[Rfam]
RNA sequence: AUGUCUUCUAGAGCUCUCCCGAGCACUUCAUUGGAAGUUGUUAUUUACGGUCAGCUGACAAUUAAUUCCACUGAAGUGUUUGGGGGAACUCCGGAUGUCAU
Dot-bracket structure: ....(.(((.(((.((((((.(((((((((.((((...............................)))).))))))).)))))))).))).))).)....
Numbered sequence: 001a002u003g004u005c006u007u008c009u010a011g012a013g014c015u016c017u018c019c020c021g022a023g024c025a026c027u028u029c030a031u032u033g034g035a036a037g038u039u040g041u042u043a044u045u046u047a048c049g050g051u052c053a054g055c056u057g058a059c060a061a062u063u064a065a066u067u068c069c070a071c072u073g074a075a076g077u078g079u080u081u082g083g084g085g086g087a088a089c090u091c092c093g094g095a096u097g098u099c100a101u
Stems, first nucleotide, its partner, number of pairs: 005097001007095003011091003015087006022081002024078007032070004